[Rfam]
RNA: Xanthomonadaceae sRNA sX15
Organism: Platysternon megacephalum
RNA sequence: CGAGAGCGAUCACGUCCUGGCCCACGCUUAUGGAUUCGAGGGAGACCUCGGGCAACUGUUCGGGCGUUGGGACGUGAGAUCCGGCGUGCGGCCCAUGCUGAGUUCCGGUGGUCUGAGCACCAAGGCGUUAUCGGGCUCGCACGCCGGGCUCUCGAGCUUCA
Numbered sequence: 001c002g003a004g005a006g007c008g009a010u011c012a013c014g015u016c017c018u019g020g021c022c023c024a025c026g027c028u029u030a031u032g033g034a035u036u037c038g039a040g041g042g043a044g045a046c047c048u049c050g051g052g053c054a055a056c057u058g059u060u061c062g063g064g065c066g067u068u069g070g071g072a073c074g075u076g077a078g079a080u081c082c083g084g085c086g087u088g089c090g091g092c093c094c095a096u097g098c099u100g101a102g103u104u105c106c107g108g109u110g111g112u113c114u115g116a117g118c119a120c121c122a123a124g125g126c127g128u129u130a131u132c133g134g135g136c137u138c139g140c141a142c143g144c145c146g147g148g149c150u151c152u153c154g155a156g157c158u159u160c161a
Stems, first nucleotide, its partner, number of pairs: 001154006007078001010077004014067002017064002020061001023058002035051001038049004081147010091136004107121004